A member of the RNA family "Selenocysteine insertion sequence 1" from Ornithorhynchus anatinus, 66 nucleotides long. Rfam classes the family as a cis-regulatory element. Taxonomically the source falls in Ornithorhynchus (Eukaryota, Metazoa, Deuterostomia, Teleostomi). Rfam describes the family as follows. The incorporation of selenocysteine into a protein sequence is directed by an in-frame UGA codon (usually a stop codon) within the coding region of the mRNA. Selenoprotein mRNAs contain a conserved secondary structure in the 3' UTR that is required for the distinction of UGA stop from UGA selenocysteine. The selenocysteine insertion sequence (SECIS) is around 60 nt in length and adopts a hairpin structure which is sufficiently well-defined and conserved to act as a computational screen for selenoprotein genes.
[Rfam]
RNA sequence: GACGCUUGAUGACGGGAGCGACUGAAAUGUCUCUGGACGCGUGGUCGUUCCCUGAGGCCCCGCGUC
Numbered sequence: 001g002a003c004g005c006u007u008g009a010u011g012a013c014g015g016g017a018g019c020g021a022c023u024g025a026a027a028u029g030u031c032u033c034u035g036g037a038c039g040c041g042u043g044g045u046c047g048u049u050c051c052c053u054g055a056g057g058c059c060c061c062g063c064g065u066c
Stems, first nucleotide, its partner, number of pairs: 001066005014052010029038003